[Rfam]
RNA sequence: GGGGAGCAAUAACCUCUUUCUUGUUCUAUCAAGAAGGCGUUAUUGCUCCUUUUUCU
Numbered sequence: 001g002g003g004g005a006g007c008a009a010u011a012a013c014c015u016c017u018u019u020c021u022u023g024u025u026c027u028a029u030c031a032a033g034a035a036g037g038c039g040u041u042a043u044u045g046c047u048c049c050u051u052u053u054u055c056u
Stems, first nucleotide, its partner, number of pairs: 001051013018035006